Rfam assigns this 75-nucleotide sequence from Haemonchus placei to the family "mir-5928 microRNA precursor family".
RNA sequence: GGCGCAAACUUGAAGUAGAGUAGUUUAGUAGGGUCAGCCAAUCAUACUGAUCUACCCUACUCCAAAUUCGGGCCC
Numbered sequence: 001g002g003c004g005c006a007a008a009c010u011u012g013a014a015g016u017a018g019a020g021u022a023g024u025u026u027a028g029u030a031g032g033g034u035c036a037g038c039c040a041a042u043c044a045u046a047c048u049g050a051u052c053u054a055c056c057c058u059a060c061u062c063c064a065a066a067u068u069c070g071g072g073c074c075c
Stems, first nucleotide, its partner, number of pairs: 001074003005070001007068002011064002014061005020055004025050006032043003
The match comes from Rfam's covariance-model search (67 bits).